[Rfam]
RNA: Mammalian CPEB3 ribozyme
Organism: Crocodylus porosus
RNA sequence: GUUGCAAAUUUGAGGCCAUAGCUGAAGUGCACACGACAUGGCCAUAUCAGGUUCCAAUGCAUCUGCAAAUUGUGCU
Numbered sequence: 001g002u003u004g005c006a007a008a009u010u011u012g013a014g015g016c017c018a019u020a021g022c023u024g025a026a027g028u029g030c031a032c033a034c035g036a037c038a039u040g041g042c043c044a045u046a047u048c049a050g051g052u053u054c055c056a057a058u059g060c061a062u063c064u065g066c067a068a069a070u071u072g073u074g075c076u
Stems, first nucleotide, its partner, number of pairs: 014043004020076003025071002027039003048065005054059001